[Rfam]
RNA: Flavobacterium-1 RNA
RNA sequence: CUAGAGAAGGCGUCCAAAUCUGCCGCUGGCAUUUCCCUGUACGUGAGCUGUGAUCCGCGAGGUAGCAACGAAGUACUAGGACCGGUUUGCGCUGGGUUCCCUGAUCAGGAAGCGCGGCCGGU
Numbered sequence: 001c002u003a004g005a006g007a008a009g010g011c012g013u014c015c016a017a018a019u020c021u022g023c024c025g026c027u028g029g030c031a032u033u034u035c036c037c038u039g040u041a042c043g044u045g046a047g048c049u050g051u052g053a054u055c056c057g058c059g060a061g062g063u064a065g066c067a068a069c070g071a072a073g074u075a076c077u078a079g080g081a082c083c084g085g086u087u088u089g090c091g092c093u094g095g096g097u098u099c100c101c102u103g104a105u106c107a108g109g110a111a112g113c114g115c116g117g118c119c120g121g122u
Base pairs, nucleotide, nucleotide: 001079002078003077004076006074009069010044011043012042013041015039016038021031022030023029024028047066048065055062056061082121083120084119085118087117088116089115090114091113092112093111100109101108102107